[Rfam]
RNA sequence: CGCUUUAUGGGGCAACUCAUAAGGUGACCGGGCAGAAGUCAGCAGAGGCCAUAGUAGCCAAAUGCCCGGGACAGGGUUAAGGGC
Numbered sequence: 001c002g003c004u005u006u007a008u009g010g011g012g013c014a015a016c017u018c019a020u021a022a023g024g025u026g027a028c029c030g031g032g033c034a035g036a037a038g039u040c041a042g043c044a045g046a047g048g049c050c051a052u053a054g055u056a057g058c059c060a061a062a063u064g065c066c067c068g069g070g071a072c073a074g075g076g077u078u079a080a081g082g083g084c
Stems, first nucleotide, its partner, number of pairs: 001026002004023008039046002048084003057077003